[Rfam]
RNA sequence: CGGGGUAACCCGGCCGAGGGAAAUCGGCAAAUUGGCCCCGUAACUUCGGGAGAAGGGGUGCCCGCGGCCCUGACCCCGAGGGUCGAACCUCGGGGGAGGGGCCGCGGGUCGCAGUGACUAGGGGGGGCCGACUGUUUAAUAAAAACAUAGGUCCCGGCUAGCCCGAAAGGGCUGGUACCGGGGCCGACGCCUGCCCAGUGCCGGUACGUGAAGCCCGGGUACAACCGGGUGAAGCGCCGGUAAACGGCGGGGGUAACUAUAACCCUCUUAAGGUAGCGAAAUGCCUUGCCGGUUAAGUACCGGCUUGCAUGAAUGGCGUAACGAGCCCCCCACUGUCCCCGGCCGGGACCCGGUGAACCCGCCAUCCCCGUGCAGAGGCGGGGGA
Numbered sequence: 001c002g003g004g005g006u007a008a009c010c011c012g013g014c015c016g017a018g019g020g021a022a023a024u025c026g027g028c029a030a031a032u033u034g035g036c037c038c039c040g041u042a043a044c045u046u047c048g049g050g051a052g053a054a055g056g057g058g059u060g061c062c063c064g065c066g067g068c069c070c071u072g073a074c075c076c077c078g079a080g081g082g083u084c085g086a087a088c089c090u091c092g093g094g095g096g097a098g099g100g101g102c103c104g105c106g107g108g109u110c111g112c113a114g115u116g117a118c119u120a121g122g123g124g125g126g127g128c129c130g131a132c133u134g135u136u137u138a139a140u141a142a143a144a145a146c147a148u149a150g151g152u153c154c155c156g157g158c159u160a161g162c163c164c165g166a167a168a169g170g171g172c173u174g175g176u177a178c179c180g181g182g183g184c185c186g187a188c189g190c191c192u193g194c195c196c197a198g199u200g201c202c203g204g205u206a207c208g209u210g211a212a213g214c215c216c217g218g219g220u221a222c223a224a225c226c227g228g229g230u231g232a233a234g235c236g237c238c239g240g241u242a243a244a245c246g247g248c249g250g251g252g253g254u255a256a257c258u259a260u261a262a263c264c265c266u267c268u269u270a271a272g273g274u275a276g277c278g279a280a281a282u283g284c285c286u287u288g289c290c291g292g293u294u295a296a297g298u299a300c301c302g303g304c305u306u307g308c309a310u311g312a313a314u315g316g317c318g319u320a321a322c323g324a325g326c327c328c329c330c331c332a333c334u335g336u337c338c339c340c341g342g343c344c345g346g347g348a349c350c351c352g353g354u355g356a357a358c359c360c361g362c363c364a365u366c367c368c369c370g371u372g373c374a375g376a377g378g379c380g381g382g383g384g385a
Base pairs, nucleotide, nucleotide: 001352002351003350004349009347010346011345012344013343014342015341016340018338019337020336035059036058037057038056039055044049060109061108062107063106064105065104066103067102068101069100070099071098110114122331123330124329125328126327127326128325129323130322133147134146135145150185151184152183153182154181155180156179157178158175161172162171163170164169188318189317190316191315193248194247195246198245199244200241201240202239203238204237207236208235209234214229215228216227217226218225249267250266251265252264253263254262268272288304289303290302291301292300293299366383367382368381369380370379
Archaeal large subunit ribosomal RNA: a 385-nucleotide part of an RNA from Methanopyrus kandleri. Lineage of the source: Archaea > Methanobacteriati > Methanopyraceae > Methanopyrus > Methanopyrus kandleri. Its Rfam clan is "LSU clan".